The family of this 350-nucleotide sequence from Ruminococcus sp. AM42-11 is "transfer-messenger RNA". The source organism's lineage runs through Bacteria, Bacillota, Clostridia, Eubacteriales and Ruminococcus. A reference for the family is Mao et al. (2010), "Variations on the tmRNA gene", RNA Biol. Rfam links the family to the GO term RNA catabolic process. A search with the family's covariance model found it, with a score of 147 bits.
[Rfam]
RNA sequence: GGGCUUGUACUGGUUUCGACGGGGGUUUUGAAGUUGUGGAAGCCAUCCGCAGUCUCCCGAACUGCGUAAUAACGGGAAGUUCUAAAUAUAAACGCUGACGAUCAGUUAGUAAUGGCAGCCUAAGUGCUGCCCGUCAGUCCUGUUGCACUCACACUUCAGGAGUCUGGCGUCGACCUUGUGAGAAACCUUGCCGGGUAAGCUUUGCCCCGGUAGAUGUAUCAUGAAGCUACUGAAGCAGUAAGCCUGUCGGUGGGCGUGCUGUGGAGGGAAUGUUAAUACAGCGACUGUGAUGGGAGAUGCCGCAAGGGAUAGACUUUCGGACGCGGGUUCAAUUCCCGCCAGGUCCAUAG
Numbered sequence: 001g002g003g004c005u006u007g008u009a010c011u012g013g014u015u016u017c018g019a020c021g022g023g024g025g026u027u028u029u030g031a032a033g034u035u036g037u038g039g040a041a042g043c044c045a046u047c048c049g050c051a052g053u054c055u056c057c058c059g060a061a062c063u064g065c066g067u068a069a070u071a072a073c074g075g076g077a078a079g080u081u082c083u084a085a086a087u088a089u090a091a092a093c094g095c096u097g098a099c100g101a102u103c104a105g106u107u108a109g110u111a112a113u114g115g116c117a118g119c120c121u122a123a124g125u126g127c128u129g130c131c132c133g134u135c136a137g138u139c140c141u142g143u144u145g146c147a148c149u150c151a152c153a154c155u156u157c158a159g160g161a162g163u164c165u166g167g168c169g170u171c172g173a174c175c176u177u178g179u180g181a182g183a184a185a186c187c188u189u190g191c192c193g194g195g196u197a198a199g200c201u202u203u204g205c206c207c208c209g210g211u212a213g214a215u216g217u218a219u220c221a222u223g224a225a226g227c228u229a230c231u232g233a234a235g236c237a238g239u240a241a242g243c244c245u246g247u248c249g250g251u252g253g254g255c256g257u258g259c260u261g262u263g264g265a266g267g268g269a270a271u272g273u274u275a276a277u278a279c280a281g282c283g284a285c286u287g288u289g290a291u292g293g294g295a296g297a298u299g300c301c302g303c304a305a306g307g308g309a310u311a312g313a314c315u316u317u318c319g320g321a322c323g324c325g326g327g328u329u330c331a332a333u334u335c336c337c338g339c340c341a342g343g344u345c346c347a348u349a350g
Stems, first nucleotide, its partner, number of pairs: 001346007020319009034305006041298001043293005048066005053079001055077005114131006132169006138161005145154001148182006188213008198228006230267002235262005242255003246285004250279003323339005
Dot-bracket structure: (((((((............(((((((((.....((((((.(.(((((((((([.[[[[[..)))))......]]]]].]..................................((((((......))))))(((((((((((..(..[[[[[[)..)))))..)))))).......]]]]]].....((((((((..[[[[[[..)))))))).........]]]]]].((...(((((..(((.[[[[[[[)))..)))))...)).........]]]..]]]]...)))))....).)))))).....)))))))))...(((((.......))))))))))))....